[Rfam]
RNA sequence: GCUUCUGUGAUCGACAACAAACCCAGCUCUCUGAAUGAUUUUGAGGAUGGAAAAAUAGCUGAGAAGC
Numbered sequence: 001g002c003u004u005c006u007g008u009g010a011u012c013g014a015c016a017a018c019a020a021a022c023c024c025a026g027c028u029c030u031c032u033g034a035a036u037g038a039u040u041u042u043g044a045g046g047a048u049g050g051a052a053a054a055a056u057a058g059c060u061g062a063g064a065a066g067c
Base pairs, nucleotide, nucleotide: 001067002066003065004064005063